[Rfam]
RNA sequence: CUGCAAACACUCCCACUGUUCUGAUUUGGUAAUAAUCAGGGCAGGCUAAGGGUUUGCUAUAUUAAGACUAUGCACGUGUUGUCCCCAGACCUAGUUCUUUCCCUAGGUCUGAUUUCAUAAAUGAUGGUGAUAAAC
Numbered sequence: 001c002u003g004c005a006a007a008c009a010c011u012c013c014c015a016c017u018g019u020u021c022u023g024a025u026u027u028g029g030u031a032a033u034a035a036u037c038a039g040g041g042c043a044g045g046c047u048a049a050g051g052g053u054u055u056g057c058u059a060u061a062u063u064a065a066g067a068c069u070a071u072g073c074a075c076g077u078g079u080u081g082u083c084c085c086c087a088g089a090c091c092u093a094g095u096u097c098u099u100u101c102c103c104u105a106g107g108u109c110u111g112a113u114u115u116c117a118u119a120a121a122u123g124a125u126g127g128u129g130a131u132a133a134a135c
Base pairs, nucleotide, nucleotide: 003057004056005055016044017043018042019041020040021039022038023037024036025035026034067128068127069126070125073123086111087110088109089108090107091106092105093104094103
The record is a 135-nucleotide RNA sequence from Myotis brandtii, which matches "Small nucleolar RNA SNORA72" in Rfam.
A reference for the family is Ganot et al. (1997), "The family of box ACA small nucleolar RNAs is defined by an evolutionarily conserved secondary structure and ubiquitous sequence elements essential for RNA accumulation", Genes Dev.
It is annotated as an H/ACA-box small nucleolar RNA.
The family has 29 seed sequences and 1,541 matches in Rfam 15.1.
Lineage of the source: Eukaryota > Metazoa > Vertebrata > Teleostomi > Myotis.
The match comes from Rfam's covariance-model search (125 bits).
From the family's description: U72 is a member of the H/ACA class of snoRNAs. The snoRNA gene is located in intron 4 of the ribosomal L30 protein gene in human, mouse and chicken.
Pairs were carried over by alignment from the consensus structure, which was predicted with PFOLD.